[Rfam]
RNA sequence: CGCACCAGAAGAGGCGCAAUUGCCAGGCAGGUAACAUGAGGACCCAAUCCUUUGACUGUUACUGAAGGGGACAUUUGCCGAGAAUAUUGAUAUGGGGGCAUAUCAUAUUCGGUCGCUAGGGCUGAAUCCUUAGGGCUGUCACCGCUAAAAAAACACAAGUUUUUUUAGCAUAGGGUGGAGAGCUUCUGGCUGA
Numbered sequence: 001c002g003c004a005c006c007a008g009a010a011g012a013g014g015c016g017c018a019a020u021u022g023c024c025a026g027g028c029a030g031g032u033a034a035c036a037u038g039a040g041g042a043c044c045c046a047a048u049c050c051u052u053u054g055a056c057u058g059u060u061a062c063u064g065a066a067g068g069g070g071a072c073a074u075u076u077g078c079c080g081a082g083a084a085u086a087u088u089g090a091u092a093u094g095g096g097g098g099c100a101u102a103u104c105a106u107a108u109u110c111g112g113u114c115g116c117u118a119g120g121g122c123u124g125a126a127u128c129c130u131u132a133g134g135g136c137u138g139u140c141a142c143c144g145c146u147a148a149a150a151a152a153a154c155a156c157a158a159g160u161u162u163u164u165u166u167a168g169c170a171u172a173g174g175g176u177g178g179a180g181a182g183c184u185u186c187u188g189g190c191u192g193a
Base pairs, nucleotide, nucleotide: 006188007187008186009185010184011183016078017077018076019075021073022072024070030063031062032061033060034059035058036057082110083109084108085107086106088105089104090103091102092101093100111137112136113135114134116133117132118131119130120129121128139178140177141176142175143174

Record summary: Lysine riboswitch aptamer: a 193-nucleotide RNA from Colwellia sp. C1TZA3. It scores 85 bits against the family's covariance model. The organism belongs to Colwellia, within Bacteria.